[Rfam]
A member of the RNA family "Small nucleolar RNA Z155" from Zea mays, 74 nucleotides long.
On this family, see Chen et al., Nucleic Acids Res 2003: "The high diversity of snoRNAs in plants: identification and comparative study of 120 snoRNA genes from Oryza sativa".
Pairs were carried over by alignment from the consensus structure.

RNA sequence: UGUUGAAGGGAUGAUAAGCCUUGCAGCAACUCGAGUGUUAACAAAAAAUUUAGCCUACAAUUAUCUGAUCAACU
Numbered sequence: 001u002g003u004u005g006a007a008g009g010g011a012u013g014a015u016a017a018g019c020c021u022u023g024c025a026g027c028a029a030c031u032c033g034a035g036u037g038u039u040a041a042c043a044a045a046a047a048a049u050u051u052a053g054c055c056u057a058c059a060a061u062u063a064u065c066u067g068a069u070c071a072a073c074u
Stems, first nucleotide, its partner, number of pairs: 002073005
Dot-bracket structure: .(((((..............................................................))))).